[Rfam]
RNA sequence: GGGUUUAACUCCUGCUUGUUACCGUUUCAUCCAACCGGAGCUGGAUGUCGUUUUGGUGUCUGAUUCGGUAAGGAACCGGGAGCACCAUCUGCGUAGGCUUGAGGUUUAAGACUUGCGUCGCCUACGGUCUUGGAUAGCCCCCGCCAGGCAGGGACCCCAAUUUUUCAGCGCGCGCAAUUACUUGCACGC
Numbered sequence: 001g002g003g004u005u006u007a008a009c010u011c012c013u014g015c016u017u018g019u020u021a022c023c024g025u026u027u028c029a030u031c032c033a034a035c036c037g038g039a040g041c042u043g044g045a046u047g048u049c050g051u052u053u054u055g056g057u058g059u060c061u062g063a064u065u066c067g068g069u070a071a072g073g074a075a076c077c078g079g080g081a082g083c084a085c086c087a088u089c090u091g092c093g094u095a096g097g098c099u100u101g102a103g104g105u106u107u108a109a110g111a112c113u114u115g116c117g118u119c120g121c122c123u124a125c126g127g128u129c130u131u132g133g134a135u136a137g138c139c140c141c142c143g144c145c146a147g148g149c150a151g152g153g154a155c156c157c158c159a160a161u162u163u164u165u166c167a168g169c170g171c172g173c174g175c176a177a178u179u180a181c182u183u184g185c186a187c188g189c
Base pairs, nucleotide, nucleotide: 002157003156005154006153011148012147013146014145023050024049028047029046030045031044032043033042035040054087055086056085057084058083059082060079061078062077064075065074066073091144092143093142096139097138098137099136104135105134106133107132108131109130110129111128112127113126171188172187174185175184176183
The family of this 189-nucleotide RNA from Pseudomonas sp. Boi14 is "Pseudomonas sRNA P27". For this family Rfam cites "Identification of 17 Pseudomonas aeruginosa sRNAs and prediction of sRNA-encoding genes in 10 diverse pathogens using the bioinformatic tool sRNAPredict2" (Livny et al., Nucleic Acids Res, 2006). The source organism's lineage runs through Bacteria, Pseudomonadota, Gammaproteobacteria, Pseudomonadaceae and Pseudomonas. It is annotated as a small RNA. A search with the family's covariance model found it, with a score of 199 bits.